[Rfam]
Background
The record is an 81-nucleotide sequence from Oryzias sinensis, which matches "Small nucleolar RNA SNORD111" in Rfam. Gene Ontology terms of the family: RNA processing and nucleolus. On this family, see Galardi et al., Mol Cell Biol 2002: "Purified box C/D snoRNPs are able to reproduce site-specific 2'-O-methylation of target RNA in vitro".

RNA sequence: UCUGCAGAAAUGAUGAGUUUUUCAUGUCUCUUCUCUGACUCAGCAUCUGUGGGGAGAACUUUUAGACCUCUGAUCUGCAGA
Numbered sequence: 001u002c003u004g005c006a007g008a009a010a011u012g013a014u015g016a017g018u019u020u021u022u023c024a025u026g027u028c029u030c031u032u033c034u035c036u037g038a039c040u041c042a043g044c045a046u047c048u049g050u051g052g053g054g055a056g057a058a059c060u061u062u063u064a065g066a067c068c069u070c071u072g073a074u075c076u077g078c079a080g081a
Base pairs, nucleotide, nucleotide: 001081002080003079004078005077
Notes
The base pairs follow the family's consensus structure, which was predicted with RNAalifold. The match comes from Rfam's covariance-model search (48 bits). It is annotated as a C/D-box small nucleolar RNA. The source organism's lineage runs through Eukaryota, Opisthokonta, Eurypterygia, Adrianichthyidae and Oryzias.